[Rfam]
RNA sequence: CAUAAGUUAAGAAAACCUUAACUUAAACUCCUAAAACUUUUUCAUAAUAAUCUCCCUAUAAAAAUAAAGUCGCCCAAUCAGGCGGCUUAUUU
Numbered sequence: 001c002a003u004a005a006g007u008u009a010a011g012a013a014a015a016c017c018u019u020a021a022c023u024u025a026a027a028c029u030c031c032u033a034a035a036a037c038u039u040u041u042u043c044a045u046a047a048u049a050a051u052c053u054c055c056c057u058a059u060a061a062a063a064a065u066a067a068a069g070u071c072g073c074c075c076a077a078u079c080a081g082g083c084g085g086c087u088u089a090u091u092u
Stems, first nucleotide, its partner, number of pairs: 004024008067088008